[Rfam]
RNA sequence: UCCCAGUGAAGAAACAUUCAAACAUUACUUCCUGUCCUAGUCCCAGAGCCUGUAAAGGUGAACCCACUGGGGCUGGCUGGAGAAGAGGAAAGUUUGUUCCAGAAGGAACUGAGGGAU
Number, nucleotide and partner (000 for none) at each position: 001u116002c115003c114004c113005a000006g000007u000008g000009a000010a000011g000012a000013a000014a000015c000016a000017u000018u000019c000020a000021a000022a000023c000024a000025u000026u000027a000028c000029u000030u000031c000032c000033u000034g000035u000036c000037c000038u000039a000040g000041u000042c000043c000044c000045a000046g000047a000048g000049c000050c000051u000052g000053u000054a000055a000056a000057g000058g000059u000060g000061a000062a000063c000064c000065c000066a000067c000068u000069g000070g000071g000072g000073c000074u000075g000076g000077c000078u000079g000080g000081a000082g000083a000084a000085g000086a000087g000088g000089a000090a000091a000092g000093u000094u000095u000096g000097u000098u000099c000100c000101a000102g000103a000104a000105g000106g000107a000108a000109c000110u000111g000112a000113g004114g003115g002116a001117u000

Record summary: This 117-nucleotide RNA from Phocoena sinus belongs to the Rfam family "Small nucleolar RNA SNORD22". A reference for the family is Tycowski et al. (1996), "A mammalian gene with introns instead of exons generating stable RNA products", Nature. The family has 49 seed sequences and 1,081 matches in Rfam 15.1. The source organism's lineage runs through Eukaryota, Teleostomi, Theria, Eutheria and Phocoena. Gene Ontology terms of the family: nucleolus and RNA processing.